[Rfam]
Shown here is a 45-nucleotide sequence from Paramuricea clavata, a member of the family "Histone 3' UTR stem-loop". Rfam's curators write: The mRNAs of metazoan histone genes lack a poly-A tail. 3' end processing occurs at a site between a highly conserved stem-loop (modelled by this family) and a purine rich region around 20 nts downstream (the histone downstream element, or HDE). The stem-loop is bound by a 31 kDa stem-loop binding protein (SLBP - also termed the histone hairpin binding protein, or HBP). Together with U7 snRNA binding of the HDE, SLBP binding nucleate s the formation of the processing complex. It scores 39 bits against the family's covariance model.
RNA sequence: AAAACGGCUCUUUUAAGAGCCACCAAAUGUAUAAAAGAAUACAAA
Numbered sequence: 001a002a003a004a005c006g007g008c009u010c011u012u013u014u015a016a017g018a019g020c021c022a023c024c025a026a027a028u029g030u031a032u033a034a035a036a037g038a039a040u041a042c043a044a045a
Stems, first nucleotide, its partner, number of pairs: 006021006
Dot-bracket structure: .....((((((....))))))........................
Rfam classes the family as a cis-regulatory element. The organism belongs to Paramuricea, within Eukaryota. Rfam links the family to the GO term mRNA 3'-end processing by stem-loop binding and cleavage.